[Rfam]
RNA sequence: AGGCGGGGGAGCACACAAGAGGUGGGGUGCGCGGUUUAAUUGGAUUCGACGCCGGGAACCUCACCGGGGCUGACAGCACAAUGAUGGUCGGCCUGAAGGGCCUACCGGAGGCGCUGAGAGGAGGUGCAUGGCCGCCGUCAGCCUGUGCCGUGAGGUGCCCUGUUAAGUCAGGAAACAGGCGAGACCCGCGCCCGCAGUUGCGACGGCCGAAAGGCCGGCACACUGCGGGGACUGCCGGGGAAACCCGGAGGAAGGUGCGGGCGACGGCAGGUAUGCAUGCCCCGAAUGCCCCGGGCUACACGCGCGCAUCAAUGGGCGGGACAGGGGGCCGCGACCCCGAAAGGGGGAGCAAAUCCCCAAACCCGCUCUCAGUCCAGAUCGAGGGCUGCAACUCGCCCUCGUGACGGCGGAAUCUCUAGUAGUCGGACGUCACCAGCGUCCGGCGAAUACGUCCCUGCUCCUUGCACUCACCGCCCGUCAAGCCACCCGAGCUGGGGCCUAGCGAGGCCGUGGGGGGUUCGCCCCCCACGGUCGAGCUAGGCCCCGGCGAGGGGGGCUAAGUCGACACAAGGUAGCCGUAGGGGAACCUGCGGCUGGAUC
Number, nucleotide and partner (000 for none) at each position: 001a468002g467003g465004c464005g463006g000007g462008g461009g460010a459011g458012c457013a456014c000015a452016c451017a000018a000019g416020a415021g414022g413023u412024g310025g309026g000027g307028u306029g305030c304031g303032c302033g301034g299035u298036u000037u000038a000039a000040u055041u054042g053043g052044a000045u000046u000047c000048g000049a000050c000051g000052c043053c042054g041055g040056g000057a000058a000059c000060c000061u000062c000063a000064c294065c293066g292067g291068g290069g289070c288071u000072g000073a000074c116075a115076g114077c113078a000079c110080a000081a000082u000083g000084a000085u000086g106087g105088u104089c000090g102091g101092c100093c000094u000095g000096a000097a000098g000099g000100g092101c091102c090103u000104a088105c087106c086107g000108g000109a000110g079111g000112c000113g077114c076115u075116g074117a000118g000119a000120g283121g282122a000123g281124g280125u279126g278127c000128a000129u277130g276131g272132c271133c270134g268135c267136c266137g265138u000139c000140a000141g180142c179143c178144u177145g176146u175147g156148c155149c154150g000151u000152g000153a000154g149155g148156u147157g000158c000159c172160c171161u170162g169163u000164u000165a000166a000167g000168u000169c162170a161171g160172g159173a000174a000175a146176c145177a144178g143179g142180c141181g000182a000183g000184a000185c000186c260187c259188g258189c257190g000191c229192c228193c227194g226195c225196a224197g223198u000199u000200g000201c218202g000203a000204c000205g216206g215207c214208c213209g000210a000211a000212a000213g208214g207215c206216c205217g000218g201219c000220a000221c000222a000223c197224u196225g195226c194227g193228g192229g191230g000231a000232c251233u250234g000235c248236c247237g246238g245239g244240g000241a000242a000243a000244c239245c238246c237247g236248g235249a000250g233251g232252a000253a000254g000255g000256u000257g189258c188259g187260g186261g000262c000263g000264a000265c137266g136267g135268c134269a000270g133271g132272u131273a000274u000275g000276c130277a129278u126279g125280c124281c123282c121283c120284g000285a000286a000287u000288g070289c069290c068291c067292c066293g065294g064295g000296c000297u000298a035299c034300a000301c033302g032303c031304g030305c029306g028307c027308a000309u025310c024311a000312a000313u000314g368315g367316g366317c365318g364319g363320g362321a000322c000323a000324g000325g000326g357327g356328g355329c000330c000331g350332c349333g000334a000335c346336c345337c344338c343339g000340a000341a000342a000343g338344g337345g336346g335347g000348a000349g332350c331351a000352a000353a000354u000355c328356c327357c326358c000359a000360a000361a000362c320363c319364c318365g317366c316367u315368c314369u000370c000371a000372g000373u000374c000375c406376a000377g000378a000379u000380c401381g400382a399383g398384g397385g396386c395387u000388g000389c000390a000391a000392c000393u000394c000395g386396c385397c384398c383399u382400c381401g380402u000403g000404a000405c000406g375407g000408c000409g000410g000411a000412a023413u022414c021415u020416c019417u000418a000419g000420u000421a000422g444423u443424c442425g441426g440427a439428c438429g437430u000431c000432a000433c000434c000435a000436g000437c429438g428439u427440c426441c425442g424443g423444c422445g000446a000447a000448u000449a000450c000451g016452u015453c000454c000455c000456u013457g012458c011459u010460c009461c008462u007463u005464g004465c003466a000467c002468u001469c000470a000471c571472c000473g568474c000475c000476c564477g563478u000479c561480a000481a558482g557483c556484c555485a000486c553487c552488c551489g000490a000491g548492c547493u546494g545495g544496g543497g542498c541499c540500u539501a538502g537503c536504g000505a000506g533507g532508c531509c530510g529511u528512g527513g526514g525515g524516g523517g522518u000519u000520c000521g000522c517523c516524c515525c514526c513527c512528a511529c510530g509531g508532u507533c506534g000535a000536g503537c502538u501539a500540g499541g498542c497543c496544c495545c494546g493547g492548c491549g000550a000551g488552g487553g486554g000555g484556g483557c482558u481559a000560a000561g479562u000563c477564g476565a000566c000567a000568c473569a000570a000571g471572g000573u596574a595575g594576c593577c592578g591579u590580a589581g588582g587583g000584g000585a000586a000587c582588c581589u580590g579591c578592g577593g576594c575595u574596g573597g000598a000599u000600c000
A member of the RNA family "Archaeal small subunit ribosomal RNA" from Nanoarchaeum equitans, 600 nucleotides of a longer RNA.
The family has 86 seed sequences and 709 matches in Rfam 15.1.
Rfam links the family to the GO terms structural constituent of ribosome and ribosome.
The sequence is in the family's curated seed alignment.
Taxonomically the source falls in Nanoarchaeum (Archaea, Nanobdellati, Candidatus Nanoarchaeia, Nanoarchaeaceae).